[Rfam]
Shown here is a 136-nucleotide RNA sequence from Clupea harengus, a member of the family "Small nucleolar RNA SNORA47". The family's consensus secondary structure was predicted with WAR. For this family Rfam cites "RNomics: an experimental approach that identifies 201 candidates for novel, small, non-messenger RNAs in mouse" (Huttenhofer et al., EMBO J, 2001).
RNA sequence: AGGAGGAUUGAGAAAGUUUGGCAGGAAGAUUGGUUCUGCUAAAACUGGUUAUUUCCUCCAAGACUAAUGACUUGACACUGCAAUAGUACCUGUGUUUUUAUAUUCAGAGUAUGUGGUGGUGGUUUGUCUACAUGUC
Numbered sequence: 001a002g003g004a005g006g007a008u009u010g011a012g013a014a015a016g017u018u019u020g021g022c023a024g025g026a027a028g029a030u031u032g033g034u035u036c037u038g039c040u041a042a043a044a045c046u047g048g049u050u051a052u053u054u055c056c057u058c059c060a061a062g063a064c065u066a067a068u069g070a071c072u073u074g075a076c077a078c079u080g081c082a083a084u085a086g087u088a089c090c091u092g093u094g095u096u097u098u099u100a101u102a103u104u105c106a107g108a109g110u111a112u113g114u115g116g117u118g119g120u121g122g123u124u125u126g127u128c129u130a131c132a133u134g135u136c
Stems, first nucleotide, its partner, number of pairs: 002059005015046004019041007080127002085123001087121003